This 216-nucleotide sequence from Carnegiea gigantea belongs to the Rfam family "Plant small nucleolar RNA U3".
About the family: Small nucleolar RNAs (snoRNAs) are involved in the processing and modification of rRNA in the nucleolus.
NCBI's taxonomy places the organism under Eukaryota, Streptophytina, Embryophyta, Euphyllophyta, Carnegiea.
Gene Ontology terms of the family: RNA processing and nucleolus.
The match comes from Rfam's covariance-model search (176 bits).

[Rfam]
RNA sequence: ACGACCUUACUUGAACAGGAUCUGUUCUAUAGGCUCGUACCUCUGUGUCAUUGACUUCUAAGGAGACAGGAAACCAAGUCUGGUGGAUGAAUUGUGACCGUGCGAUCAGAGCGUGAUUAACGGCUUCUGGUGGAUGUGAAGCCUUCGGUGCUGUAGAGGAUCGUUCCCAAUCUCAACUAUGAGGGCUGGGAUAGUCGCACGGUUGUCUGACGGACU
Numbered sequence: 001a002c003g004a005c006c007u008u009a010c011u012u013g014a015a016c017a018g019g020a021u022c023u024g025u026u027c028u029a030u031a032g033g034c035u036c037g038u039a040c041c042u043c044u045g046u047g048u049c050a051u052u053g054a055c056u057u058c059u060a061a062g063g064a065g066a067c068a069g070g071a072a073a074c075c076a077a078g079u080c081u082g083g084u085g086g087a088u089g090a091a092u093u094g095u096g097a098c099c100g101u102g103c104g105a106u107c108a109g110a111g112c113g114u115g116a117u118u119a120a121c122g123g124c125u126u127c128u129g130g131u132g133g134a135u136g137u138g139a140a141g142c143c144u145u146c147g148g149u150g151c152u153g154u155a156g157a158g159g160a161u162c163g164u165u166c167c168c169a170a171u172c173u174c175a176a177c178u179a180u181g182a183g184g185g186c187u188g189g190g191a192u193a194g195u196c197g198c199a200c201g202g203u204u205g206u207c208u209g210a211c212g213g214a215c216u
Stems, first nucleotide, its partner, number of pairs: 001038002003035001005033003013027006043069004048064002051061003078215005097203010108192001110165004120154005126148002129146002132143002135140001167189003171185001172183004